[Rfam]
Nucleotides: 284
Stems, first nucleotide, its partner, number of pairs: 005140003009136009020044003025039005048055002060087005068078002089123002091120003094116002101109001143282002146279001150272006159248011170236001172204004179196007208233004213229002216227002250260002
Number, partner (000 for none) and nucleotide at each position: 001000g002000a003000g004000u005140c006139c007138a008000c009136c010135a011134u012133u013132a014131g015130u016129g017128c018000g019000a020044g021043u022042a023000u024000u025039u026038g027037g028036g029035u030000g031000c032000c033000a034000a035029a036028c037027c038026c039025a040000u041000a042022u043021g044020c045000g046000u047000a048055a049054g050000g051000a052000a053000a054049c055048u056000g057000a058000u059000u060087g061086a062085u063084a064083c065000g066000a067000a068078u069077c070000c071000a072000u073000u074000a075000a076000g077069g078068a079000g080000g081000c082000a083064g084063u085062a086061u087060c088000g089123u090122c091120c092119g093118g094116c095115g096000c097000u098000g099000a100000c101109g102000u103000u104000u105000u106000a107000u108000a109101c110000u111000g112000a113000a114000u115095u116094g117000a118093c119092c120091g121000a122090g123089a124000c125000a126000a127000a128017g129016c130015a131014c132013u133012a134011a135010u136009g137000a138007u139006g140005g141000g142000a143282c144281c145000c146279g147000a148000a149000a150272g151271a152270u153269g154268g155267u156000g157000a158000a159248c160247u161246a162245u163244g164243c165242c166241u167240g168239a169238a170236u171000a172204g173203g174202g175201u176000g177000a178000a179196g180195c181194c182193a183192g184191a185190g186000g187000a188000a189000a190185c191184u192183c193182u194181g195180g196179u197000g198000g199000a200000g201175g202174c203173u204172c205000g206000u207000a208233g209232c210231g211230a212000u213229u214228c215000u216227g217226a218000c219000g220000u221000g222000c223000a224000a225000a226217u227216c228214g229213a230211u231210c232209g233208u234000c235000a236170a237000a238169u239168u240167u241166g242165g243164g244163u245162a246161u247160a248159g249000g250260g251259g252000c253000g254000a255000a256000a257000g258000a259251c260250u261000a262000a263000u264000c265000g266000a267155a268154c269153c270152a271151u272150c273000u274000a275000g276000u277000a278000g279146c280000u281144g282143g283000u284000u